[Rfam]
RNA: Small nucleolar RNA SNORD115
RNA sequence: GGUCAAUGAUGACAUUCUUGCCUUGUCUGUAGAGAGGUGUUGUGUUAAAAUUCAUGUGCAAUAGAGUUACACUGAGGACC
Numbered sequence: 001g002g003u004c005a006a007u008g009a010u011g012a013c014a015u016u017c018u019u020g021c022c023u024u025g026u027c028u029g030u031a032g033a034g035a036g037g038u039g040u041u042g043u044g045u046u047a048a049a050a051u052u053c054a055u056g057u058g059c060a061a062u063a064g065a066g067u068u069a070c071a072c073u074g075a076g077g078a079c080c
Base pairs, nucleotide, nucleotide: 001079003077004074005073007071008070